[Rfam]
RNA: SAM riboswitch aptamer (S box leader)
RNA sequence: CUCUUAUCCAGAGCAAGUGGAGGGAACAGGCCCUAUGAAGCUCGGCAACCAUCAUGAAAGUGACAGGUGCUAUCCUGAGGCAAGGAAUACCCUUGGACGAUAAGAG
Numbered sequence: 001c002u003c004u005u006a007u008c009c010a011g012a013g014c015a016a017g018u019g020g021a022g023g024g025a026a027c028a029g030g031c032c033c034u035a036u037g038a039a040g041c042u043c044g045g046c047a048a049c050c051a052u053c054a055u056g057a058a059a060g061u062g063a064c065a066g067g068u069g070c071u072a073u074c075c076u077g078a079g080g081c082a083a084g085g086a087a088u089a090c091c092c093u094u095g096g097a098c099g100a101u102a103a104g105a106g
Base pairs, nucleotide, nucleotide: 001106002105003104004103005102006101007100008099013043016042017041018040022033023032024031027079030076044071045070046069047068049067050066052063053062054061081095082094083093084092085091
Dot-bracket structure: ((((((((....(..(((...(((..[..[)))......))))((((.((.(((......)))..))))))....]..].(((((.....)))))...))))))))